[Rfam]
This 99-nucleotide RNA sequence from Scleropages formosus belongs to the Rfam family "Small nucleolar RNA SNORD16". A search with the family's covariance model found it, with a score of 85 bits. Gene Ontology terms of the family: RNA processing and nucleolus. The base pairs follow the family's consensus structure, which was predicted with PFOLD.
RNA sequence: UGCUGUGAUGGUGUAAUUUGCGUCUUAUCCUGUGCACAGUGACAGUUUGCCUGCUGUCAUAUACUGGUACAGAGAACUGGCGAAAAAAUAAUCUGAGCA
Dot-bracket structure: (((.................((((.....(((((....(((((((........)))))....))...)))))......))))..............)))